Notes
Shown here is a 76-nucleotide sequence from Triticum aestivum, a member of the family "Small nucleolar RNA R12". Rfam's curators write: snoR12 is a C/D box small nucleolar RNA, which acts as a methylation guide for 25S ribosomal RNA in plants. snoR12 has been alternatively named snoZ44 in Arabidopsis and snoZ131 in rice. A reference for the family is Chen et al. (2003), "The high diversity of snoRNAs in plants: identification and comparative study of 120 snoRNA genes from Oryza sativa", Nucleic Acids Res. Pairs were carried over by alignment from the consensus structure, which was predicted with PFOLD. Its family is annotated with RNA processing and nucleolus in the Gene Ontology.
[Rfam]
RNA sequence: ACCUGAGUGACGAAUAAAAUCGUUCGGAUUCCCACUGAUAUUACAUGAUUAUUAUAACCAGCUACUUCUGACGGAU
Numbered sequence: 001a002c003c004u005g006a007g008u009g010a011c012g013a014a015u016a017a018a019a020u021c022g023u024u025c026g027g028a029u030u031c032c033c034a035c036u037g038a039u040a041u042u043a044c045a046u047g048a049u050u051a052u053u054a055u056a057a058c059c060a061g062c063u064a065c066u067u068c069u070g071a072c073g074g075a076u
Stems, first nucleotide, its partner, number of pairs: 001076001003074003